This 86-nucleotide sequence from Setaria italica belongs to the Rfam family "mir-156 microRNA precursor family". About the family: This family represents the plant microRNA (miRNA) precursor mir-156. The organism belongs to Setaria, within Eukaryota. The base pairs follow the family's consensus structure, which was predicted with PFOLD. A search with the family's covariance model found it, with a score of 63 bits. A reference for the family is Reinhart et al. (2002), "MicroRNAs in plants", Genes Dev.
[Rfam]
RNA sequence: UUGACAGAAGAGAGUGAGCACACGGCGCGAUGAACAGCAUAGCGUGUGUGCUGUCCUCGUCGCGUGCUCACUCCUCUUUCUGUCAG
Numbered sequence: 001u002u003g004a005c006a007g008a009a010g011a012g013a014g015u016g017a018g019c020a021c022a023c024g025g026c027g028c029g030a031u032g033a034a035c036a037g038c039a040u041a042g043c044g045u046g047u048g049u050g051c052u053g054u055c056c057u058c059g060u061c062g063c064g065u066g067c068u069c070a071c072u073c074c075u076c077u078u079u080c081u082g083u084c085a086g
Base pairs, nucleotide, nucleotide: 001086002085003084004083005082006081007080008079009078010076011075012074013072014071015070016069017068018067019066020065021064023062024061025060